This 75-nucleotide sequence from Actinosynnema mirum belongs to the Rfam family "ASpks TB sRNA". For this family Rfam cites "Identification of small RNAs in Mycobacterium tuberculosis" (Arnvig and Young, Mol Microbiol, 2009). NCBI's taxonomy places the organism under Bacteria, Bacillati, Pseudonocardiales, Pseudonocardiaceae, Actinosynnema mirum. It is annotated as an antisense RNA. The family has 77 seed sequences and 9,052 matches in Rfam 15.1.
RNA sequence: CUUCACCGACCCCAGCCACAGCGGUCGCCGCGGGUCCCGGUCCCGCCCGUAGGUGGCGAGCAGCGCCUGCGCCUC
Numbered sequence: 001c002u003u004c005a006c007c008g009a010c011c012c013c014a015g016c017c018a019c020a021g022c023g024g025u026c027g028c029c030g031c032g033g034g035u036c037c038c039g040g041u042c043c044c045g046c047c048c049g050u051a052g053g054u055g056g057c058g059a060g061c062a063g064c065g066c067c068u069g070c071g072c073c074u075c
Stems, first nucleotide, its partner, number of pairs: 015025003031071002038065002043060001047056003